Rfam assigns this 103-nucleotide RNA sequence from Bremia lactucae to the family "Small nucleolar RNA snR60/Z15/Z230/Z193/J17". The family is grouped with related families in Rfam's "SNORD77 clan". Rfam 15.1 lists 3,592 matches to the family in 1,855 species.
[Rfam]
RNA sequence: UAAAAGAAAGUGAUGAUUUAGAUAUGCAUAGUUCAACUGAAAGCCUCCUAGCUGCUGUUGAUAUUAUUCCAUCAAAGUCUUUCGCUCCUAUCUGAUUCUUAAC
Number, nucleotide and partner (000 for none) at each position: 001u000002a000003a000004a100005a099006g098007a097008a096009a000010g000011u000012g000013a000014u000015g000016a000017u000018u000019u000020a000021g000022a000023u000024a000025u000026g000027c000028a000029u000030a000031g000032u000033u000034c000035a000036a000037c000038u000039g000040a000041a000042a000043g000044c000045c000046u000047c000048c000049u000050a000051g000052c000053u000054g000055c000056u000057g000058u000059u000060g000061a000062u000063a000064u000065u000066a000067u000068u000069c000070c000071a000072u000073c000074a000075a000076a000077g000078u000079c000080u000081u000082u000083c000084g000085c000086u000087c000088c000089u000090a000091u000092c000093u000094g000095a000096u008097u007098c006099u005100u004101a000102a000103c000